Coronavirus 3' UTR pseudoknot: a 62-nucleotide RNA from Betacoronavirus ratti. The literature on the family includes a 1999 paper in J Virol by Williams et al., "A phylogenetically conserved hairpin-type 3' untranslated region pseudoknot functions in coronavirus RNA replication". By type it is a cis-regulatory element. The family's consensus secondary structure is taken from published work.
[Rfam]
RNA sequence: GCACUCUCUAUCAGAAUGGAUGUCUUGUCACUACAAUAGAUAGAGAAGGUUGUAGUGGACUA
Numbered sequence: 001g002c003a004c005u006c007u008c009u010a011u012c013a014g015a016a017u018g019g020a021u022g023u024c025u026u027g028u029c030a031c032u033a034c035a036a037u038a039g040a041u042a043g044a045g046a047a048g049g050u051u052g053u054a055g056u057g058g059a060c061u062a
Base pairs, nucleotide, nucleotide: 007044008043009042010041011040012039029057030056031055032054033053034052035051036050037049